Annotation: The family of this 50-nucleotide sequence from Arminella tumorigenes is "Guanidine-II riboswitch aptamer (mini-ykkC)".
[Rfam]
RNA sequence: UGACCGGGACGGCCCGGUUCCCUCUCUGGGCCCUCGCCAGGACGACCUGG
Numbered sequence: 001u002g003a004c005c006g007g008g009a010c011g012g013c014c015c016g017g018u019u020c021c022c023u024c025u026c027u028g029g030g031c032c033c034u035c036g037c038c039a040g041g042a043c044g045a046c047c048u049g050g
Base pairs, nucleotide, nucleotide: 002019003018004017005016006015007014008013037050038049039048040047041046

The match comes from Rfam's covariance-model search (33 bits). Taxonomically the source falls in Arminella (Bacteria, Pseudomonadati, Pseudomonadota, Alphaproteobacteria).